The family of this 194-nucleotide RNA from Rouxiella badensis is "Yersinia sRNA 251". A search with the family's covariance model found it, with a score of 140 bits. On this family, see Nuss et al., PLoS Genet 2015: "Transcriptomic profiling of Yersinia pseudotuberculosis reveals reprogramming of the Crp regulon by temperature and uncovers Crp as a master regulator of small RNAs". The base pairs follow the family's consensus structure, which was predicted with RNAfold. The source organism's lineage runs through Bacteria, Pseudomonadota, Enterobacterales, Yersiniaceae and Rouxiella. By type it is an antisense RNA.
[Rfam]
RNA sequence: AGUAGGCGUUCAGCGCAUGUUGGCACAAAUCUGAACGUACGCAGUCUUCUUUAGUGAAGCGAAUGAUGCCGACCAUCUCGUCUUCUUUGAAGCGAGUCAGUGCAUCGCUAAGCCCUGAUACCACGCCGCGCGGUAGAUCGCACUGGGUGACAUCCCCGUUGACUAUCACCGUCACAUUUUCACCGAGACGGGUC
Numbered sequence: 001a002g003u004a005g006g007c008g009u010u011c012a013g014c015g016c017a018u019g020u021u022g023g024c025a026c027a028a029a030u031c032u033g034a035a036c037g038u039a040c041g042c043a044g045u046c047u048u049c050u051u052u053a054g055u056g057a058a059g060c061g062a063a064u065g066a067u068g069c070c071g072a073c074c075a076u077c078u079c080g081u082c083u084u085c086u087u088u089g090a091a092g093c094g095a096g097u098c099a100g101u102g103c104a105u106c107g108c109u110a111a112g113c114c115c116u117g118a119u120a121c122c123a124c125g126c127c128g129c130g131c132g133g134u135a136g137a138u139c140g141c142a143c144u145g146g147g148u149g150a151c152a153u154c155c156c157c158g159u160u161g162a163c164u165a166u167c168a169c170c171g172u173c174a175c176a177u178u179u180u181c182a183c184c185g186a187g188a189c190g191g192g193u194c
Stems, first nucleotide, its partner, number of pairs: 003053004008048001014041002017038003061078001063076003067072001083112002088107001093102002114192004119188001122185001125134003137166002140163001144158003171183002174180001